Source information
mir-375 microRNA precursor family: a 64-nucleotide sequence from Elysia chlorotica. Gene Ontology terms of the family: RISC complex and miRNA-mediated post-transcriptional gene silencing. The source organism's lineage runs through Eukaryota, Opisthokonta, Eumetazoa, Bilateria and Elysia. For this family Rfam cites "The developmental miRNA profiles of zebrafish as determined by small RNA cloning" (Chen et al., Genes Dev, 2005). The base pairs follow the family's consensus structure, which was predicted with RNAalifold.
[Rfam]
RNA sequence: GGUCACGUGAGCAGUGCGCUACAAGACCUCCACAAGUGUUUUGUUCGUUCGGCUCGCGUUAUUA
Numbered sequence: 001g002g003u004c005a006c007g008u009g010a011g012c013a014g015u016g017c018g019c020u021a022c023a024a025g026a027c028c029u030c031c032a033c034a035a036g037u038g039u040u041u042u043g044u045u046c047g048u049u050c051g052g053c054u055c056g057c058g059u060u061a062u063u064a
Stems, first nucleotide, its partner, number of pairs: 001063003005059008017047002021044004026039002